[Rfam]
RNA sequence: ACACGAGAGAGGAGGUGGUCCAGAGUUGAUUGGCUAUAGGACACGUGAGGUGGCUGCCCGCUAGCAGCCGCGCCAGGGUCCGCCCUGUCGCGCGAGCGGCGAGCGAAUCCACAGCAGCAACCCAGCCCCCGGGACUGCCAGCACGUCCAGCUGGCACCGCGCUCCCGCCUUGUGAGCGCGCACUGUCCCGGGGGCUGUUGCGU
Numbered sequence: 001a002c003a004c005g006a007g008a009g010a011g012g013a014g015g016u017g018g019u020c021c022a023g024a025g026u027u028g029a030u031u032g033g034c035u036a037u038a039g040g041a042c043a044c045g046u047g048a049g050g051u052g053g054c055u056g057c058c059c060g061c062u063a064g065c066a067g068c069c070g071c072g073c074c075a076g077g078g079u080c081c082g083c084c085c086u087g088u089c090g091c092g093c094g095a096g097c098g099g100c101g102a103g104c105g106a107a108u109c110c111a112c113a114g115c116a117g118c119a120a121c122c123c124a125g126c127c128c129c130c131g132g133g134a135c136u137g138c139c140a141g142c143a144c145g146u147c148c149a150g151c152u153g154g155c156a157c158c159g160c161g162c163u164c165c166c167g168c169c170u171u172g173u174g175a176g177c178g179c180g181c182a183c184u185g186u187c188c189c190g191g192g193g194g195c196u197g198u199u200g201c202g203u
Stems, first nucleotide, its partner, number of pairs: 014058006059105004064100002067097002070093003123197013137155006